[Rfam]
RNA sequence: ACAGUCUGAAUAUCACUUGGGGUCUCCUGUGGUCUAACAGUGCCAACAGCAGAGGGAGCAUUAAACUCAUUGCCCACGGUAAAGUGUGGGGAGUGAUACCCAUGUUCCUAUAAUC
Numbered sequence: 001a002c003a004g005u006c007u008g009a010a011u012a013u014c015a016c017u018u019g020g021g022g023u024c025u026c027c028u029g030u031g032g033u034c035u036a037a038c039a040g041u042g043c044c045a046a047c048a049g050c051a052g053a054g055g056g057a058g059c060a061u062u063a064a065a066c067u068c069a070u071u072g073c074c075c076a077c078g079g080u081a082a083a084g085u086g087u088g089g090g091g092a093g094u095g096a097u098a099c100c101c102a103u104g105u106u107c108c109u110a111u112a113a114u115c
Base pairs, nucleotide, nucleotide: 006040007039008038010035013032014031015030016029055108057106058105059104060103061102067096068095069094070093071092075088076087077086